[Rfam]
RNA sequence: GUUUUUCUAGUUUUCGUGCCAGAAGUUGCGUUUUCGGUAUAUUUGACACGUAAAUGCACCUAUCUGGUAUGCAAACUAGAACUG
Numbered sequence: 001g002u003u004u005u006u007c008u009a010g011u012u013u014u015c016g017u018g019c020c021a022g023a024a025g026u027u028g029c030g031u032u033u034u035c036g037g038u039a040u041a042u043u044u045g046a047c048a049c050g051u052a053a054a055u056g057c058a059c060c061u062a063u064c065u066g067g068u069a070u071g072c073a074a075a076c077u078a079g080a081a082c083u084g
Base pairs, nucleotide, nucleotide: 008078009077010076011075015071016070017069018068019067020066021065022064023063025060028057029056030055031054032053033052035050036049

Rfam assigns this 84-nucleotide RNA from Halicephalobus sp. NKZ332 to the family "mir-277 microRNA precursor family". Pairs were carried over by alignment from the consensus structure, which was predicted with RNAalifold. A reference for the family is Liu et al. (2010), "MicroRNAs of Bombyx mori identified by Solexa sequencing", BMC Genomics. It scores 44 bits against the family's covariance model. Taxonomically the source falls in Halicephalobus (Eukaryota, Metazoa, Bilateria, Chromadorea).